This 101-nucleotide RNA sequence from Rhinopithecus roxellana belongs to the Rfam family "Y RNA". By type it is a non-coding RNA gene. The base pairs follow the family's consensus structure, which is taken from published work. Rfam's curators write: Y RNAs are components of the Ro ribonucleoprotein particle (Ro RNP), in association with Ro60 and La proteins. The Y RNAs and Ro60 and La proteins are well conserved, but the function of the Ro RNP is not known. In humans the RNA component can be one of four small RNAs -- hY1, hY3, hY4 and hY5.
[Rfam]
RNA sequence: GGUUGGUCUGAGUGCAGCGGUGUUUACAACUAAUUGACUGCAAUCAGUUACAGGUUUUUUUGUUCCUUCUCUACUCCCACUGCUUCAAUUGACUAGUUAGC
Numbered sequence: 001g002g003u004u005g006g007u008c009u010g011a012g013u014g015c016a017g018c019g020g021u022g023u024u025u026a027c028a029a030c031u032a033a034u035u036g037a038c039u040g041c042a043a044u045c046a047g048u049u050a051c052a053g054g055u056u057u058u059u060u061u062g063u064u065c066c067u068u069c070u071c072u073a074c075u076c077c078c079a080c081u082g083c084u085u086c087a088a089u090u091g092a093c094u095a096g097u098u099a100g101c
Base pairs, nucleotide, nucleotide: 001098002097003096004095005094006093007092008091010090011089014086016081017080019078020077022076028064029063030062032060033059